[Rfam]
RNA sequence: GGCCUUUCUCUGUGAGGCAAUCGAUCGUGGGGCUCCACGAUUGAUCGCCCAGCAGAGGGAGGCC
Numbered sequence: 001g002g003c004c005u006u007u008c009u010c011u012g013u014g015a016g017g018c019a020a021u022c023g024a025u026c027g028u029g030g031g032g033c034u035c036c037a038c039g040a041u042u043g044a045u046c047g048c049c050c051a052g053c054a055g056a057g058g059g060a061g062g063c064c
Base pairs, nucleotide, nucleotide: 001064002063003062004061005060006059007058008057009056010055011054012053013052016049017048018047020045021044022043023042024041025040026039027038028037029036030035
mir-9242 microRNA precursor family: a 64-nucleotide RNA sequence from Cnephaeus nilssonii.
Its family is annotated with miRNA-mediated post-transcriptional gene silencing and RISC complex in the Gene Ontology.
A search with the family's covariance model found it, with a score of 70 bits.